[Rfam]
RNA: Bacterial large subunit ribosomal RNA, nucleotides 1307 to 1689
RNA sequence: GUUUGGGAGUGAGAAUCUCCCAUGCCGUUUGACCAAGGUUUCCUGGGCAAGGUUCGUCCACCCAGGGUUAGUCAGGACCUAAGGCGAGGCCGAAAGGCGUAGUCGAUGGACAACAGGUUGAUAUUCCUGUACCACCUAACAAAGUGAUGGAGUGACGGAGAAGGAUAGUGGAUGCCGGCUGUUGGUUAUGCCGGUCUAAAUACAAAGAGGUGUACGUUGGCAAAUCCGCGUGCUAUAACCUUGAAGUAUGAUGGGGAGUGAACGCUUCGGCUAGUAGCGAAGUCCAUGACUCCACGCUUCCAAGAAAAGCUUCUAGCGUUAAUUUGUUAGGUGCCUGUACCGAGAACGAACACACGUGGUCAAGGAGAGAAUCCUAAGGCAAG
Numbered sequence: 001g002u003u004u005g006g007g008a009g010u011g012a013g014a015a016u017c018u019c020c021c022a023u024g025c026c027g028u029u030u031g032a033c034c035a036a037g038g039u040u041u042c043c044u045g046g047g048c049a050a051g052g053u054u055c056g057u058c059c060a061c062c063c064a065g066g067g068u069u070a071g072u073c074a075g076g077a078c079c080u081a082a083g084g085c086g087a088g089g090c091c092g093a094a095a096g097g098c099g100u101a102g103u104c105g106a107u108g109g110a111c112a113a114c115a116g117g118u119u120g121a122u123a124u125u126c127c128u129g130u131a132c133c134a135c136c137u138a139a140c141a142a143a144g145u146g147a148u149g150g151a152g153u154g155a156c157g158g159a160g161a162a163g164g165a166u167a168g169u170g171g172a173u174g175c176c177g178g179c180u181g182u183u184g185g186u187u188a189u190g191c192c193g194g195u196c197u198a199a200a201u202a203c204a205a206a207g208a209g210g211u212g213u214a215c216g217u218u219g220g221c222a223a224a225u226c227c228g229c230g231u232g233c234u235a236u237a238a239c240c241u242u243g244a245a246g247u248a249u250g251a252u253g254g255g256g257a258g259u260g261a262a263c264g265c266u267u268c269g270g271c272u273a274g275u276a277g278c279g280a281a282g283u284c285c286a287u288g289a290c291u292c293c294a295c296g297c298u299u300c301c302a303a304g305a306a307a308a309g310c311u312u313c314u315a316g317c318g319u320u321a322a323u324u325u326g327u328u329a330g331g332u333g334c335c336u337g338u339a340c341c342g343a344g345a346a347c348g349a350a351c352a353c354a355c356g357u358g359g360u361c362a363a364g365g366a367g368a369g370a371a372u373c374c375u376a377a378g379g380c381a382a383g
Base pairs, nucleotide, nucleotide: 004022005021006020007019008018009017023381024380025379026378031361032360033359034358037341038340042066043065044064045063046062047061051059052058073337074336075335076334078109079108083104084103085102087100089098090097091096113130114129115128116127117126133333134332135331136330137329138328139327140326141325142324143323144317145316149313150312151311152310153309157300158299159298160297163293164292165291168287169286170285171284172283174195175194176193177192178191179190196254197253200249201248202247203246207242208241209240212233213232214231215230216229217228219227220226258278259277261275347356348355363375364374365373366372